[Rfam]
RNA sequence: CUCCCGUUGCCUCUACGUGCUGCAUCAGGUGCUUGUGACUACGCGUUCGAAAGUCAGGUACCUGAAGUAGCGCGCGGAAGGCUUCGGGG
Numbered sequence: 001c002u003c004c005c006g007u008u009g010c011c012u013c014u015a016c017g018u019g020c021u022g023c024a025u026c027a028g029g030u031g032c033u034u035g036u037g038a039c040u041a042c043g044c045g046u047u048c049g050a051a052a053g054u055c056a057g058g059u060a061c062c063u064g065a066a067g068u069a070g071c072g073c074g075c076g077g078a079a080g081g082c083u084u085c086g087g088g089g
Stems, first nucleotide, its partner, number of pairs: 010080001012078001014076001016074007031059002034057001037055004
mir-275 microRNA precursor family: an 89-nucleotide RNA sequence from Ixodes scapularis.
Rfam's curators put it in the seed alignment.
The organism belongs to Ixodes, within Eukaryota.
Rfam links the family to the GO terms RISC complex and miRNA-mediated post-transcriptional gene silencing.